[Rfam]
RNA sequence: CUGAAUUCUCAGGGCGGGGCGCAAUUCCCCACCGGCGGUAAUUCAGAGCACUCAAUAGUGAGUUAACUGAAAAGCCCGCGAGCGCUUAUCUUUUUUAUAAUGAUAAGGUCAGCAGAUCUGGUGUAAUACUUCCUGUCAGUAUGAGUCCAGAGCCGACGGUUAUAGUCCGGAUGAAAGAGGAUCAGU
Numbered sequence: 001c002u003g004a005a006u007u008c009u010c011a012g013g014g015c016g017g018g019g020c021g022c023a024a025u026u027c028c029c030c031a032c033c034g035g036c037g038g039u040a041a042u043u044c045a046g047a048g049c050a051c052u053c054a055a056u057a058g059u060g061a062g063u064u065a066a067c068u069g070a071a072a073a074g075c076c077c078g079c080g081a082g083c084g085c086u087u088a089u090c091u092u093u094u095u096u097a098u099a100a101u102g103a104u105a106a107g108g109u110c111a112g113c114a115g116a117u118c119u120g121g122u123g124u125a126a127u128a129c130u131u132c133c134u135g136u137c138a139g140u141a142u143g144a145g146u147c148c149a150g151a152g153c154c155g156a157c158g159g160u161u162a163u164a165g166u167c168c169g170g171a172u173g174a175a176a177g178a179g180g181a182u183c184a185g186u
Stems, first nucleotide, its partner, number of pairs: 005182006017029003031166002033155002035079004074153002082113002117151005157169003
FMN riboswitch aptamer (RFN element): a 186-nucleotide sequence from Photobacterium profundum. Pairs were carried over by alignment from the consensus structure, which is taken from published work. The RFN element is a highly conserved domain that is found frequently in the 5'-untranslated regions of prokaryotic mRNAs that encode for flavin mononucleotide (FMN) biosynthesis and transport proteins. The match comes from Rfam's covariance-model search (97 bits). The literature on the family includes a 2002 paper in Nucleic Acids Res by Vitreschak et al., "Regulation of riboflavin biosynthesis and transport genes in bacteria by transcriptional and translational attenuation". NCBI's taxonomy places the organism under Bacteria, Pseudomonadati, Gammaproteobacteria, Vibrionaceae, Photobacterium profundum.